[Rfam]
RNA sequence: GAUAGUAGCAGCAUAGUCGGGUGUGAAUCCCGAUCGCCGAAGGGGCUAGGUUUCCUUGGCAAUGUUCGUCAGCCAAGGGUUAGCCGGUCCUAAGAUAUGUCCUAAUUGGAGCAUGUCAAAUGGGAAGCAGGUUAAUAUUCCUGCGCCAUUCAGCCUAUGUGCUUCGAGCACACCUGACGCUUCCGGGUAGAUUGAGCGGCGCUGUCGCGCCGUCCAAGCACCGAACCCUAUGGAGAGCCGUAAUGGCGAGAAGUAGGCGAAUGUGUGAUGGCGAAAGUCAGUUAAGCCCAGGAGCCCGUGAAAAGGGCGGCUGAAUGUCCGUACCGAGAACCGACACAGGUGCCCCUAGCUGAGAAGGCUCAGGCGUGU
Numbered sequence: 001g002a003u004a005g006u007a008g009c010a011g012c013a014u015a016g017u018c019g020g021g022u023g024u025g026a027a028u029c030c031c032g033a034u035c036g037c038c039g040a041a042g043g044g045g046c047u048a049g050g051u052u053u054c055c056u057u058g059g060c061a062a063u064g065u066u067c068g069u070c071a072g073c074c075a076a077g078g079g080u081u082a083g084c085c086g087g088u089c090c091u092a093a094g095a096u097a098u099g100u101c102c103u104a105a106u107u108g109g110a111g112c113a114u115g116u117c118a119a120a121u122g123g124g125a126a127g128c129a130g131g132u133u134a135a136u137a138u139u140c141c142u143g144c145g146c147c148a149u150u151c152a153g154c155c156u157a158u159g160u161g162c163u164u165c166g167a168g169c170a171c172a173c174c175u176g177a178c179g180c181u182u183c184c185g186g187g188u189a190g191a192u193u194g195a196g197c198g199g200c201g202c203u204g205u206c207g208c209g210c211c212g213u214c215c216a217a218g219c220a221c222c223g224a225a226c227c228c229u230a231u232g233g234a235g236a237g238c239c240g241u242a243a244u245g246g247c248g249a250g251a252a253g254u255a256g257g258c259g260a261a262u263g264u265g266u267g268a269u270g271g272c273g274a275a276a277g278u279c280a281g282u283u284a285a286g287c288c289c290a291g292g293a294g295c296c297c298g299u300g301a302a303a304a305g306g307g308c309g310g311c312u313g314a315a316u317g318u319c320c321g322u323a324c325c326g327a328g329a330a331c332c333g334a335c336a337c338a339g340g341u342g343c344c345c346c347u348a349g350c351u352g353a354g355a356a357g358g359c360u361c362a363g364g365c366g367u368g369u
Stems, first nucleotide, its partner, number of pairs: 016034006035366004043345004049325002054078006063071002085321003089123002094117006100110003127144005147317008173307003179295005185289003190283005196213005218266004227257005237247003272277001331340002348360003
Archaeal large subunit ribosomal RNA: a 369-nucleotide part of an RNA from an uncultured archaeon. The sequence is in the family's curated seed alignment.